[Rfam]
RNA sequence: GUUCUGUUAUUUGCAGUCAGUAACAAAGAUUCAUCCUUGUGUCCGUCAUGCAGCAAGGAGAAUCUUUGUCACUUAGUGUAAUUAACAGCUGGAU
Numbered sequence: 001g002u003u004c005u006g007u008u009a010u011u012u013g014c015a016g017u018c019a020g021u022a023a024c025a026a027a028g029a030u031u032c033a034u035c036c037u038u039g040u041g042u043c044c045g046u047c048a049u050g051c052a053g054c055a056a057g058g059a060g061a062a063u064c065u066u067u068g069u070c071a072c073u074u075a076g077u078g079u080a081a082u083u084a085a086c087a088g089c090u091g092g093a094u
Stems, first nucleotide, its partner, number of pairs: 004088006011081005017075001019073003023069010034059007041051002
Source information:
The family of this 94-nucleotide RNA from Cebus imitator is "mir-802 microRNA precursor family". The literature on the family includes a 2006 paper in Nucleic Acids Res by Takada et al., "Mouse microRNA profiles determined with a new and sensitive cloning method". A search with the family's covariance model found it, with a score of 111 bits. Pairs were carried over by alignment from the consensus structure, which was predicted with RNAalifold. The source organism's lineage runs through Eukaryota, Eumetazoa, Bilateria, Sarcopterygii and Cebus.